The family of this 168-nucleotide sequence from Mus musculus is "Small nucleolar RNA SNORD97". Rfam links the family to the GO terms RNA processing and nucleolus. Taxonomically the source falls in Mus (Eukaryota, Opisthokonta, Craniata, Rodentia). The literature on the family includes a 2003 paper in Nucleic Acids Res by Vitali et al., "Identification of 13 novel human modification guide RNAs".
RNA sequence: UUGCCCGAUGAUUAUAAAAAGACGCCAAAGAGGACUUAAAGCUGGAAUUCUUUUUCCUUUUAUUCUCUCCUCUACUCUUAUGUCUUCAACUUCUUUUCUACUUUUCUCUGCUUUUUCUCUCUGGAUGUCCAGCGUCCUAUGAGCGAAGAUUAUGAGAUAUGAGGGCAA
Numbered sequence: 001u002u003g004c005c006c007g008a009u010g011a012u013u014a015u016a017a018a019a020a021g022a023c024g025c026c027a028a029a030g031a032g033g034a035c036u037u038a039a040a041g042c043u044g045g046a047a048u049u050c051u052u053u054u055u056c057c058u059u060u061u062a063u064u065c066u067c068u069c070c071u072c073u074a075c076u077c078u079u080a081u082g083u084c085u086u087c088a089a090c091u092u093c094u095u096u097u098c099u100a101c102u103u104u105u106c107u108c109u110g111c112u113u114u115u116u117c118u119c120u121c122u123g124g125a126u127g128u129c130c131a132g133c134g135u136c137c138u139a140u141g142a143g144c145g146a147a148g149a150u151u152a153u154g155a156g157a158u159a160u161g162a163g164g165g166c167a168a
Stems, first nucleotide, its partner, number of pairs: 001168006031086005037080003